[Rfam]
RNA sequence: CCAUCAUCACCAUGAUACCUGAUUAUCUUUCGGGCGUUUGGUGUUGCUUGGAAGAUAAACCUUCCGAGUGAGUGAAUGCGAUAUAAAAGCCACACAGAAAAAUCUCUCGGAAGCAAUUUCGGGAGAUUUUUUUUAU
Numbered sequence: 001c002c003a004u005c006a007u008c009a010c011c012a013u014g015a016u017a018c019c020u021g022a023u024u025a026u027c028u029u030u031c032g033g034g035c036g037u038u039u040g041g042u043g044u045u046g047c048u049u050g051g052a053a054g055a056u057a058a059a060c061c062u063u064c065c066g067a068g069u070g071a072g073u074g075a076a077u078g079c080g081a082u083a084u085a086a087a088a089g090c091c092a093c094a095c096a097g098a099a100a101a102a103u104c105u106c107u108c109g110g111a112a113g114c115a116a117u118u119u120c121g122g123g124a125g126a127u128u129u130u131u132u133u134u135a136u
Stems, first nucleotide, its partner, number of pairs: 008046002011040002014037001018034005047068008096133016

This 136-nucleotide sequence from Conservatibacter flavescens belongs to the Rfam family "Histidine operon leader". Gene Ontology term of the family: histidine biosynthetic process. About the family: At least 6 amino acid operons are known to be regulated by attenuation. In each a leader sequence of 150-200 bp is found upstream of the first gene in the operon. This leader sequence can assume two different secondary structures known as the terminator and the anti-terminator structure. The organism belongs to Conservatibacter, within Bacteria. The literature on the family includes a 1982 paper in Annu Rev Genet by Kolter and Yanofsky, "Attenuation in amino acid biosynthetic operons". Rfam classes the family as a cis-regulatory leader.